[Rfam]
A member of the RNA family "M-box riboswitch aptamer (ykoK leader)" from Clostridium celatum, 164 nucleotides long.
The organism belongs to Clostridium celatum, within Bacteria.
Pairs were carried over by alignment from the consensus structure.
RNA sequence: AAUAUAGAUUGUUAGGUGAGGUUCCUAUAGAGACAAAUGCUACUGCCCAGAAAAAUCUAGAGAUUCCAAUGGGUUAGCAGUAAUCAUCGCCAAGGUGAUUUCUAAUGUAGCUGAUCAAUUAAGAUCUACGCUCUAUAGUGCUAAAGCUCUACAAAAUGAGAGUU
Numbered sequence: 001a002a003u004a005u006a007g008a009u010u011g012u013u014a015g016g017u018g019a020g021g022u023u024c025c026u027a028u029a030g031a032g033a034c035a036a037a038u039g040c041u042a043c044u045g046c047c048c049a050g051a052a053a054a055a056u057c058u059a060g061a062g063a064u065u066c067c068a069a070u071g072g073g074u075u076a077g078c079a080g081u082a083a084u085c086a087u088c089g090c091c092a093a094g095g096u097g098a099u100u101u102c103u104a105a106u107g108u109a110g111c112u113g114a115u116c117a118a119u120u121a122a123g124a125u126c127u128a129c130g131c132u133c134u135a136u137a138g139u140g141c142u143a144a145a146g147c148u149c150u151a152c153a154a155a156a157u158g159a160g161a162g163u164u
Stems, first nucleotide, its partner, number of pairs: 005160001008157003011152002013093001015148003020142003025138008039111005045074005054065004080102001082100002086096003113126003

M-box riboswitch, also know as ykoK leader is described as a metaloregulatory RNA that sense divalent metals and function as a genetic control element of genes related to divalent metal transport in bacteria. It was first reported upstream of the B.subtilis ykoK gene and genes with related functions in other bacteria. It scores 128 bits against the family's covariance model. On this family, see Barrick et al., Proc Natl Acad Sci U S A 2004: "New RNA motifs suggest an expanded scope for riboswitches in bacterial genetic control".